[Rfam]
RNA sequence: GGGCUUUUGAUGAUAAAUUAAAUUAUCUUAGCGGAUUUCUGUGAGAUCAAAGAUCUAUGAUCUUUUGUUACACACACUGAAGCCC
Numbered sequence: 001g002g003g004c005u006u007u008u009g010a011u012g013a014u015a016a017a018u019u020a021a022a023u024u025a026u027c028u029u030a031g032c033g034g035a036u037u038u039c040u041g042u043g044a045g046a047u048c049a050a051a052g053a054u055c056u057a058u059g060a061u062c063u064u065u066u067g068u069u070a071c072a073c074a075c076a077c078u079g080a081a082g083c084c085c
Stems, first nucleotide, its partner, number of pairs: 001085005
Dot-bracket structure: (((((...........................................................................)))))
Shown here is an 85-nucleotide RNA from Carnegiea gigantea, a member of the family "Small nucleolar RNA R11/Z151". The source organism's lineage runs through Eukaryota, Viridiplantae, eudicotyledons, Cactineae and Carnegiea. The family has 5 seed sequences and 802 matches in Rfam 15.1. The family's consensus secondary structure was predicted with PFOLD.